[Rfam]
A member of the RNA family "Clostridiales-1 RNA" from Firmicutes bacterium CAG:95, 178 nucleotides long. It is annotated as a small RNA. The organism belongs to Bacillota, within Bacteria.
RNA sequence: UGAUGUAAGUGUCAAAAGUCCAAAUGCGAUUGUGCUUGCACAAAUGAGCAUUUCAGACUUAUUGACAUGCCAAACACUGAAAACGUAAUAAAAUGCUGUGAAUAUGGCAUUUUAUGGGAGUUUGAGGUGCUUGAGAAUUGCAGAAAUUGCAAAGCAAUGUAGCGAUUCGGACACAUCA
Number, nucleotide and partner (000 for none) at each position: 001u178002g177003a176004u175005g174006u173007a000008a000009g000010u067011g066012u065013c064014a000015a000016a060017a059018g058019u057020c056021c000022a053023a052024a051025u050026g049027c048028g000029a000030u043031u042032g041033u040034g039035c000036u000037u000038g000039c034040a033041c032042a031043a030044a000045u000046g000047a000048g027049c026050a025051u024052u023053u022054c000055a000056g020057a019058c018059u017060u016061a000062u000063u000064g013065a012066c011067a010068u000069g000070c000071c133072a132073a131074a000075c129076a128077c127078u126079g000080a000081a123082a122083a121084c120085g000086u000087a000088a115089u114090a113091a112092a111093a110094u109095g108096c107097u106098g105099u104100g000101a000102a000103u000104a099105u098106g097107g096108c095109a094110u093111u092112u091113u090114a089115u088116g000117g000118g000119a000120g084121u083122u082123u081124g000125a000126g078127g077128u076129g075130c000131u073132u072133g071134a000135g168136a167137a166138u165139u164140g163141c162142a000143g000144a000145a000146a158147u157148u156149g155150c000151a000152a000153a000154g000155c149156a148157a147158u146159g000160u000161a000162g141163c140164g139165a138166u137167u136168c135169g000170g000171a000172c000173a006174c005175a004176u003177c002178a001

Rfam 15.1 lists 1,172 matches to the family in 137 species.